[Rfam]
RNA sequence: AGGGUGAGGGUUGCGGUUUUGCUGGUACUGAGGUAAUACCUGCCCCCAGUACCAGAAAUGCCGCCAUCCUCCUCCUAC
Numbered sequence: 001a002g003g004g005u006g007a008g009g010g011u012u013g014c015g016g017u018u019u020u021g022c023u024g025g026u027a028c029u030g031a032g033g034u035a036a037u038a039c040c041u042g043c044c045c046c047c048a049g050u051a052c053c054a055g056a057a058a059u060g061c062c063g064c065c066a067u068c069c070u071c072c073u074c075c076u077a078c
Base pairs, nucleotide, nucleotide: 001076002075003074004073006071007070008069009068013064014063015062016061017060019058022055023054024053025052026051027050028049029048030047
Background
The family of this 78-nucleotide RNA from Eptesicus fuscus is "mir-9186 microRNA precursor family". The source organism's lineage runs through Eukaryota, Teleostomi, Theria, Yangochiroptera and Eptesicus. It is one of the family's seed sequences.